[Rfam]
RNA sequence: GAUAAGACGGGUGAGAAUCCCGUCCGCCGUAAGGACAAGGGUUCCUGGGGAAGGGUCGUCCGCCCAGGGAAAGUCGGGACCUAAGGUGAGGCCGAAGGGCGCAGCCGAUGGACAGCAGGUCAAGAUUCCUGCACUAGUGUGGUGGAGUGAUGGAGGGACGCAUUCGGUUAGGAAGUGCCGGGAUACGGAAAGACCGGUUGCUAUAUCAAGGCCGUCAGGGUCAGAAAAUCUACCUGGCAUUGGCUGAGAUAUGGCGGGAUCCCUUCGGGGCGUAGCUUCUGACAUCAUGGUGCCAAGAAAAGCUUCUAAACGUUGAAACCACAGUACCCGUACCGCAAACCGACACAGGUGUCCGAGUGUCAAUGCACUAAGGCGCG
Numbered sequence: 001g002a003u004a005a006g007a008c009g010g011g012u013g014a015g016a017a018u019c020c021c022g023u024c025c026g027c028c029g030u031a032a033g034g035a036c037a038a039g040g041g042u043u044c045c046u047g048g049g050g051a052a053g054g055g056u057c058g059u060c061c062g063c064c065c066a067g068g069g070a071a072a073g074u075c076g077g078g079a080c081c082u083a084a085g086g087u088g089a090g091g092c093c094g095a096a097g098g099g100c101g102c103a104g105c106c107g108a109u110g111g112a113c114a115g116c117a118g119g120u121c122a123a124g125a126u127u128c129c130u131g132c133a134c135u136a137g138u139g140u141g142g143u144g145g146a147g148u149g150a151u152g153g154a155g156g157g158a159c160g161c162a163u164u165c166g167g168u169u170a171g172g173a174a175g176u177g178c179c180g181g182g183a184u185a186c187g188g189a190a191a192g193a194c195c196g197g198u199u200g201c202u203a204u205a206u207c208a209a210g211g212c213c214g215u216c217a218g219g220g221u222c223a224g225a226a227a228a229u230c231u232a233c234c235u236g237g238c239a240u241u242g243g244c245u246g247a248g249a250u251a252u253g254g255c256g257g258g259a260u261c262c263c264u265u266c267g268g269g270g271c272g273u274a275g276c277u278u279c280u281g282a283c284a285u286c287a288u289g290g291u292g293c294c295a296a297g298a299a300a301a302g303c304u305u306c307u308a309a310a311c312g313u314u315g316a317a318a319c320c321a322c323a324g325u326a327c328c329c330g331u332a333c334c335g336c337a338a339a340c341c342g343a344c345a346c347a348g349g350u351g352u353c354c355g356a357g358u359g360u361c362a363a364u365g366c367a368c369u370a371a372g373g374c375g376c377g
Base pairs, nucleotide, nucleotide: 006024007023008022009021010020011019025375026374027373028372033354034353035352036351039334040333044068045067046066047065048064049063053061054060075330076329077328078327080111081110085106086105087104091100092099093098115132116131117130118129119128135326136325138323139322140321141320142319143318147311148310152306153305154304155303160293161292162291163290166286167285168284171280172279173278174277175276177198178197179196180195181194199257203252204251205250206249210245211244212243214238215237216236217235218234220233221232223231224230259273260272262270263269340349341348356369357368358367359366
RNA: Bacterial large subunit ribosomal RNA, nucleotides 1294 to 1670
Organism: Deinococcus ruber